[Rfam]
RNA sequence: CCCUGACAAAGGCAAACCGUUCGAGAGGACGGCACGCAAAACCACGGGUCCGUGAGUCGGUCGAUCGCAUUGUUUGCGUUCGGCUUGGCUUCAGGAAAGCCGAGUUGCCGUG
Numbered sequence: 001c002c003c004u005g006a007c008a009a010a011g012g013c014a015a016a017c018c019g020u021u022c023g024a025g026a027g028g029a030c031g032g033c034a035c036g037c038a039a040a041a042c043c044a045c046g047g048g049u050c051c052g053u054g055a056g057u058c059g060g061u062c063g064a065u066c067g068c069a070u071u072g073u074u075u076g077c078g079u080u081c082g083g084c085u086u087g088g089c090u091u092c093a094g095g096a097a098a099g100c101c102g103a104g105u106u107g108c109c110g111u112g
Stems, first nucleotide, its partner, number of pairs: 012037002017032006040106003045102003049096002055091002058088001
The record is a 112-nucleotide RNA from Rhodopirellula baltica, which matches "c-di-GMP-I riboswitch aptamer" in Rfam. Pairs were carried over by alignment from the consensus structure, which is taken from published work. The source organism's lineage runs through Bacteria, Pseudomonadati, Planctomycetota, Rhodopirellula and Rhodopirellula baltica. Rfam's curators write: GEMM was predicted in a large-scale screen for bacterial structured RNA regulatory elements. Genes associated with GEMM are involved in a diverse array of functions, including chemotaxis regulation, signal transduction, secretion and chitin.